[Rfam]
RNA sequence: GGUUCAUGAUGAUACAGGACCUUGUCUGAACAUCAUGAUCUCAAAAUAUGAGCUAGGAAGUUGUCACUGAAAUC
Numbered sequence: 001g002g003u004u005c006a007u008g009a010u011g012a013u014a015c016a017g018g019a020c021c022u023u024g025u026c027u028g029a030a031c032a033u034c035a036u037g038a039u040c041u042c043a044a045a046a047u048a049u050g051a052g053c054u055a056g057g058a059a060g061u062u063g064u065c066a067c068u069g070a071a072a073u074c
Stems, first nucleotide, its partner, number of pairs: 001074004
Background
This 74-nucleotide RNA sequence from Pipistrellus kuhlii belongs to the Rfam family "Small nucleolar RNA SNORD107". Lineage of the source: Eukaryota > Deuterostomia > Vertebrata > Chiroptera > Pipistrellus. Rfam 15.1 lists 144 matches to the family in 129 species. Rfam classes the family as a C/D-box small nucleolar RNA.